Description:
This 76-nucleotide RNA from Musa acuminata belongs to the Rfam family "Small nucleolar RNA R160". The literature on the family includes a 2003 paper in Nucleic Acids Res by Chen et al., "The high diversity of snoRNAs in plants: identification and comparative study of 120 snoRNA genes from Oryza sativa". The family's RNA type in Rfam is C/D-box small nucleolar RNA. Lineage of the source: Eukaryota > Euphyllophyta > Mesangiospermae > commelinids > Musa acuminata. About the family: snoR160 is a C/D box small nucleolar RNA, which acts as a methylation guide for 25S ribosomal RNA in plants. snoR160 has been alternatively named snoZ270 in rice. A search with the family's covariance model found it, with a score of 74 bits.

[Rfam]
RNA sequence: AACAAAAUGAUGAGGCUUGUUGAUCUGAAUUAUAUGUGGAUAAUACAUCAAAGGUCUUCAAAGUUCUCUGAUUGCU
Number, nucleotide and partner (000 for none) at each position: 001a076002a000003c074004a073005a072006a000007a000008u000009g000010a000011u000012g000013a000014g000015g000016c000017u000018u000019g000020u000021u000022g000023a000024u000025c000026u000027g000028a000029a000030u000031u000032a000033u000034a000035u000036g000037u000038g000039g000040a000041u000042a000043a000044u000045a000046c000047a000048u000049c000050a000051a000052a000053g000054g000055u000056c000057u000058u000059c000060a000061a000062a000063g000064u000065u000066c000067u000068c000069u000070g000071a000072u005073u004074g003075c000076u001